Ribosomal S15 leader: a 131-nucleotide RNA sequence from Kangiella koreensis.
About the family: The E. coli Ribosomal S15 gene 5' UTR can form two alternative structures. One that is a series of three hairpins, The other includes a pseudoknot. This structure causes translational regulation of the S15 protein.
Its Rfam clan is "Ribosomal Protein S15 Leader clan".
RNA sequence: UUGACUGGCUGAAUUAGUGAUUGGCCGGUCUUGUUUAAAAUCUUGGGCAAGUCCCUGAAAUUUGGAGUAAAAAUAUGUCACUAAGUCCAGAAGCGAAAGCUGAUAUUGUAAAAGAACACGCGCGCGGUGAA
Numbered sequence: 001u002u003g004a005c006u007g008g009c010u011g012a013a014u015u016a017g018u019g020a021u022u023g024g025c026c027g028g029u030c031u032u033g034u035u036u037a038a039a040a041u042c043u044u045g046g047g048c049a050a051g052u053c054c055c056u057g058a059a060a061u062u063u064g065g066a067g068u069a070a071a072a073a074u075a076u077g078u079c080a081c082u083a084a085g086u087c088c089a090g091a092a093g094c095g096a097a098a099g100c101u102g103a104u105a106u107u108g109u110a111a112a113a114g115a116a117c118a119c120g121c122g123c124g125c126g127g128u129g130a131a
Stems, first nucleotide, its partner, number of pairs: 007026006061085005067079001